[Rfam]
RNA sequence: UUACAUAUUUGGCAAAGCUGAUGAAAGUCAGUGACGCAAAGCUAAAGGGUCUAAAUCAGAAAUUGAUAUGACAGCCAGUUGCUCGU
Numbered sequence: 001u002u003a004c005a006u007a008u009u010u011g012g013c014a015a016a017g018c019u020g021a022u023g024a025a026a027g028u029c030a031g032u033g034a035c036g037c038a039a040a041g042c043u044a045a046a047g048g049g050u051c052u053a054a055a056u057c058a059g060a061a062a063u064u065g066a067u068a069u070g071a072c073a074g075c076c077a078g079u080u081g082c083u084c085g086u
Stems, first nucleotide, its partner, number of pairs: 012037002017032006040080004047076002049072003056066004
About this RNA:
This 86-nucleotide RNA sequence from Clostridium sp. chh4-2 belongs to the Rfam family "c-di-GMP-I riboswitch aptamer". Gene Ontology term of the family: cyclic-di-GMP binding. It scores 70 bits against the family's covariance model. Lineage of the source: Bacteria > Bacillota > Clostridia > Clostridiaceae > Clostridium. Rfam describes the family as follows. GEMM was predicted in a large-scale screen for bacterial structured RNA regulatory elements.